[Rfam]
RNA sequence: GCAAAGGCUCCGAACAGAUGGAUAACGAUGAGACAUUGUGCGGAGC
Number, nucleotide and partner (000 for none) at each position: 001g000002c000003a000004a000005a000006g000007g000008c045009u044010c043011c042012g041013a000014a039015c038016a037017g000018a000019u000020g000021g000022a000023u000024a000025a000026c000027g000028a000029u000030g000031a000032g000033a000034c000035a000036u000037u016038g015039u014040g000041c012042g011043g010044a009045g008046c000
uup RNA: a 46-nucleotide sequence from Eubacterium limosum. Taxonomically the source falls in Eubacterium limosum (Bacteria, Clostridia, Eubacteriales, Eubacteriaceae). By type it is a cis-regulatory element. It is one of the family's seed sequences.